[Rfam]
About this RNA: RAGATH-13 RNA: a 94-nucleotide RNA sequence from Legionella geestiana. The family has 20 seed sequences and 49 matches in Rfam 15.1. Rfam classes the family as a ribozyme. Its family is annotated with catalytic activity in the Gene Ontology.
RNA sequence: AUUGAUUUGCCCCCAAACCGAGCUUUACGGCGCAAGCCGGGUUUCGCCUUUGAGUGAGCCGCUCGACCAACACUAAACCAAAGUCAGGGCAAAU
Numbered sequence: 001a002u003u004g005a006u007u008u009g010c011c012c013c014c015a016a017a018c019c020g021a022g023c024u025u026u027a028c029g030g031c032g033c034a035a036g037c038c039g040g041g042u043u044u045c046g047c048c049u050u051u052g053a054g055u056g057a058g059c060c061g062c063u064c065g066a067c068c069a070a071c072a073c074u075a076a077a078c079c080a081a082a083g084u085c086a087g088g089g090c091a092a093a094u
Stems, first nucleotide, its partner, number of pairs: 005094008019065005028039004040060003044057002